[Rfam]
RNA sequence: UACCAUUGGAAAGCGCCAGCACUGAGGCUGCCCGACAUGGAGCCCAGUGGACGAGGUGGAGGUUUAUCGAAGCAUUCGGCGGAUACCUCCCGGCAGCAGUAUCACUGCCGCAGAGCGCAGGGACAAAACAUCAGGGUGAUCUGAUGGACAAAACCUUGUGUGUGAUACGUU
Numbered sequence: 001u002a003c004c005a006u007u008g009g010a011a012a013g014c015g016c017c018a019g020c021a022c023u024g025a026g027g028c029u030g031c032c033c034g035a036c037a038u039g040g041a042g043c044c045c046a047g048u049g050g051a052c053g054a055g056g057u058g059g060a061g062g063u064u065u066a067u068c069g070a071a072g073c074a075u076u077c078g079g080c081g082g083a084u085a086c087c088u089c090c091c092g093g094c095a096g097c098a099g100u101a102u103c104a105c106u107g108c109c110g111c112a113g114a115g116c117g118c119a120g121g122g123a124c125a126a127a128a129c130a131u132c133a134g135g136g137u138g139a140u141c142u143g144a145u146g147g148a149c150a151a152a153a154c155c156u157u158g159u160g161u162g163u164g165a166u167a168c169g170u171u
Base pairs, nucleotide, nucleotide: 020049021048022047023046024045026043029040058090059089060088061087062086067079068078069077070076091110092109093108094107095106096105115161116160117159118158119157120156121155129146130145131144132143133142134141135140
RNA: glmS glucosamine-6-phosphate activated ribozyme aptamer
Organism: Brevibacillus brevis